[Rfam]
RNA sequence: GGCGUCCGCCUCGUGAACACUCGCGCGCUGUGGACCUUCGUCCCGUUACCCUGACCGAGUGCGCCUUCCUCCGAAGCGCAAAGCCGACAGCCGUCGCACCUCAGGGAGCUAUUUCAUG
Numbered sequence: 001g002g003c004g005u006c007c008g009c010c011u012c013g014u015g016a017a018c019a020c021u022c023g024c025g026c027g028c029u030g031u032g033g034a035c036c037u038u039c040g041u042c043c044c045g046u047u048a049c050c051c052u053g054a055c056c057g058a059g060u061g062c063g064c065c066u067u068c069c070u071c072c073g074a075a076g077c078g079c080a081a082a083g084c085c086g087a088c089a090g091c092c093g094u095c096g097c098a099c100c101u102c103a104g105g106g107a108g109c110u111a112u113u114u115c116a117u118g
Stems, first nucleotide, its partner, number of pairs: 060080004065076004083097002086095003